[Rfam]
RNA: c-di-AMP riboswitch aptamer (ydaO/yuaA leader)
Organism: Paenibacillus xylanivorans
RNA sequence: UAUUUGUUCCUGCCGAAACUUCCGGAGCUGGAAGUGUGGGGGAUGUAACGAUGCAAGGUGUGCUUGGGGAAGAUUGGUUGGCACACUGCUUGGGGUGAAUUAGGGCUACAUAAAUAAUUAAUGUAAUUGAACCUAUAGGGUGGUUUCCUCCAUCCGAAUCCGACAACUAACUUCGCAGGCAUAAUGAGGGAGGAAGA
Numbered sequence: 001u002a003u004u005u006g007u008u009c010c011u012g013c014c015g016a017a018a019c020u021u022c023c024g025g026a027g028c029u030g031g032a033a034g035u036g037u038g039g040g041g042g043a044u045g046u047a048a049c050g051a052u053g054c055a056a057g058g059u060g061u062g063c064u065u066g067g068g069g070a071a072g073a074u075u076g077g078u079u080g081g082c083a084c085a086c087u088g089c090u091u092g093g094g095g096u097g098a099a100u101u102a103g104g105g106c107u108a109c110a111u112a113a114a115u116a117a118u119u120a121a122u123g124u125a126a127u128u129g130a131a132c133c134u135a136u137a138g139g140g141u142g143g144u145u146u147c148c149u150c151c152a153u154c155c156g157a158a159u160c161c162g163a164c165a166a167c168u169a170a171c172u173u174c175g176c177a178g179g180c181a182u183a184a185u186g187a188g189g190g191a192g193g194a195a196g197a
Stems, first nucleotide, its partner, number of pairs: 011181004018035007036176006046092002093161003101135004138155004